A member of the RNA family "Small nucleolar RNA SNORA8" from Myotis davidii, 138 nucleotides long. It is annotated as an H/ACA-box small nucleolar RNA. Its family is annotated with RNA processing and nucleolus in the Gene Ontology. About the family: ACA8 is a member of the H/ACA class of snoRNA that guide the sites of modification of uridines to pseudouridines. The match comes from Rfam's covariance-model search (124 bits). Rfam 15.1 lists 1,490 matches to the family in 610 species.
RNA sequence: UGCACUUCAUGGUAUCUGUAUUCAGUAGUUUAUUCUUGCUAGGUGUUCAAAGGACAGGGCAAUAUAAAUUUAGUAUCUGGCAUCGUUGGUUUUCUUGGCUUUGUGCAUGUUAAACCUGGUAUUUUUAUUGAGACGUUA
Numbered sequence: 001u002g003c004a005c006u007u008c009a010u011g012g013u014a015u016c017u018g019u020a021u022u023c024a025g026u027a028g029u030u031u032a033u034u035c036u037u038g039c040u041a042g043g044u045g046u047u048c049a050a051a052g053g054a055c056a057g058g059g060c061a062a063u064a065u066a067a068a069u070u071u072a073g074u075a076u077c078u079g080g081c082a083u084c085g086u087u088g089g090u091u092u093u094c095u096u097g098g099c100u101u102u103g104u105g106c107a108u109g110u111u112a113a114a115c116c117u118g119g120u121a122u123u124u125u126u127a128u129u130g131a132g133a134c135g136u137u138a
Stems, first nucleotide, its partner, number of pairs: 002060002005057002015053003018046005024040005063127002066124004070119004080106004